This 98-nucleotide RNA from Paramagnetospirillum magneticum belongs to the Rfam family "Glycine riboswitch aptamer". It scores 74 bits against the family's covariance model. Rfam 15.1 lists 9,425 matches to the family in 5,228 species.
RNA sequence: AUGAUCCCCGUGGGAGAGAUCGGCCCCUGACGAUUGGGCCGGCGCCGAAGGAGCAACCGCCCCUGGAAACUCUCAGGCAAAAGGACCGCGGGGGGAUG
Numbered sequence: 001a002u003g004a005u006c007c008c009c010g011u012g013g014g015a016g017a018g019a020u021c022g023g024c025c026c027c028u029g030a031c032g033a034u035u036g037g038g039c040c041g042g043c044g045c046c047g048a049a050g051g052a053g054c055a056a057c058c059g060c061c062c063c064u065g066g067a068a069a070c071u072c073u074c075a076g077g078c079a080a081a082a083g084g085a086c087c088g089c090g091g092g093g094g095g096a097u098g
Stems, first nucleotide, its partner, number of pairs: 006093008020042007044078003047074002051072003057065001